A member of the RNA family "S15-Flavobacteria ribosomal protein leader", 67 nucleotides long.
Pairs were carried over by alignment from the consensus structure, which is taken from published work.
On this family, see Eckert and Weinberg, BMC Microbiol 2020: "Discovery of 20 novel ribosomal leader candidates in bacteria and archaea".
Its Rfam clan is "Ribosomal Protein S15 Leader clan".
The sequence is in the family's curated seed alignment.
RNA sequence: UAUAUUUGCAGCUUCAGUGAAAAAUUUCGCUGAUAUACAUAAUAAUCAUUUAAAUAAUAUUGGCAUG
Numbered sequence: 001u002a003u004a005u006u007u008g009c010a011g012c013u014u015c016a017g018u019g020a021a022a023a024a025u026u027u028c029g030c031u032g033a034u035a036u037a038c039a040u041a042a043u044a045a046u047c048a049u050u051u052a053a054a055u056a057a058u059a060u061u062g063g064c065a066u067g
Stems, first nucleotide, its partner, number of pairs: 014033006